[Rfam]
RNA sequence: CACCAAGCCUCUUUGUCAGGACGUCGUUACAAUGGUUACAUCUCUUGGGUAGACUUGUCUGUCCUCGUCAUGAUUAUAGUCCAUUAACUCCUCAUAACCUCGUCUGUUACUGUCUUGGAAGAACAACUUGUCCCGUUGACGUUAUUCGAUAACAAUGGAAAGGAUAGCUAAUUCGUUCUGAAUGUGCACACCUUAUCCCAUUCUAACGGUUCAAGAGAGAACCCAUUAGAGUUGAAUGCAGUUUUCCCCCAAGGCGAAUAGCCUAUGUAUGGGAUUUAACACUGCGUUCGUAGUAUGGAAACUCAUAUUU
Number, nucleotide and partner (000 for none) at each position: 001c000002a000003c118004c117005a116006a115007g114008c000009c000010u000011c000012u000013u000014u000015g000016u000017c000018a000019g105020g104021a103022c102023g101024u000025c000026g098027u097028u096029a000030c000031a085032a084033u083034g082035g081036u000037u000038a000039c000040a000041u000042c000043u000044c000045u000046u000047g000048g000049g000050u000051a000052g000053a000054c000055u000056u000057g000058u000059c000060u000061g000062u000063c000064c000065u000066c000067g000068u000069c000070a000071u000072g000073a000074u000075u000076a000077u000078a000079g000080u000081c035082c034083a033084u032085u031086a000087a000088c000089u000090c000091c000092u000093c000094a000095u000096a028097a027098c026099c000100u000101c023102g022103u021104c020105u019106g000107u000108u000109a000110c000111u000112g000113u000114c007115u006116u005117g004118g003119a000120a000121g000122a000123a000124c000125a000126a000127c215128u214129u213130g212131u000132c000133c000134c000135g153136u152137u151138g150139a000140c148141g147142u000143u000144a000145u000146u000147c141148g140149a000150u138151a137152a136153c135154a000155a000156u000157g000158g000159a000160a194161a193162g192163g191164a000165u000166a000167g187168c186169u000170a000171a183172u182173u181174c180175g179176u000177u000178c000179u175180g174181a173182a172183u171184g000185u000186g168187c167188a000189c000190a000191c163192c162193u161194u160195a000196u000197c000198c000199c000200a000201u000202u000203c000204u000205a000206a000207c000208g000209g000210u000211u000212c130213a129214a128215g127216a000217g304218a303219g302220a000221a000222c000223c298224c297225a296226u000227u000228a000229g000230a000231g000232u000233u290234g289235a288236a287237u286238g000239c284240a283241g282242u281243u000244u000245u274246c273247c272248c271249c000250c000251a000252a000253g000254g000255c000256g000257a000258a000259u000260a000261g000262c000263c000264u000265a000266u000267g000268u000269a000270u000271g248272g247273g246274a245275u000276u000277u000278a000279a000280c000281a242282c241283u240284g239285c000286g237287u236288u235289c234290g233291u000292a000293g000294u000295a000296u225297g224298g223299a000300a000301a000302c219303u218304c217305a000306u000307a000308u000309u000310u000